Shown here is a 107-nucleotide sequence from Vibrio nigripulchritudo, a member of the family "t44 RNA". NCBI's taxonomy places the organism under Bacteria, Pseudomonadota, Vibrionales, Vibrio, Vibrio nigripulchritudo. This family consists of a number of bacterial RNA genes of between 135 and 170 bases in length. The t44 gene has been identified in several species of enteric bacteria but homologs have also been identified in Pseudomonas and Coxiella species. The t44 gene is found between the map and rpsB genes in all species in the full alignment apart from Shigella flexneri. The function of this RNA is unknown.
RNA sequence: AACAAACUAUUUCUUAAAUCACACACGUACCGACACAUGAUCCGGGGUGCUCACUUACUUAGAUAUAAGAAGCUGAGUCGGACGCAUGGGGUAUGUGGAGGCCUAAC
Numbered sequence: 001a002a003c004a005a006a007c008u009a010u011u012u013c014u015u016a017a018a019u020c021a022c023a024c025a026c027g028u029a030c031c032g033a034c035a036c037a038u039g040a041u042c043c044g045g046g047g048u049g050c051u052c053a054c055u056u057a058c059u060u061a062g063a064u065a066u067a068a069g070a071a072g073c074u075g076a077g078u079c080g081g082a083c084g085c086a087u088g089g090g091g092u093a094u095g096u097g098g099a100g101g102c103c104u105a106a107c
Stems, first nucleotide, its partner, number of pairs: 024097008036088004041082004049078005